[Rfam]
Rfam assigns this 74-nucleotide RNA sequence from Brugia malayi to the family "mir-84 microRNA precursor family". The sequence is in the family's curated seed alignment. The base pairs follow the family's consensus structure, which was predicted with RNAalifold. A reference for the family is Zisoulis et al. (2010), "Comprehensive discovery of endogenous Argonaute binding sites in", Nat Struct Mol Biol.
RNA sequence: GAGGCUGCUGAGGUAGUUUAUAAAGCUGCGAGAGCAGAUCAUACUCACAGAUUUUAAGCUAUCUCCACUGCCUU
Numbered sequence: 001g002a003g004g005c006u007g008c009u010g011a012g013g014u015a016g017u018u019u020a021u022a023a024a025g026c027u028g029c030g031a032g033a034g035c036a037g038a039u040c041a042u043a044c045u046c047a048c049a050g051a052u053u054u055u056a057a058g059c060u061a062u063c064u065c066c067a068c069u070g071c072c073u074u
Stems, first nucleotide, its partner, number of pairs: 003072003010065008022054003027049002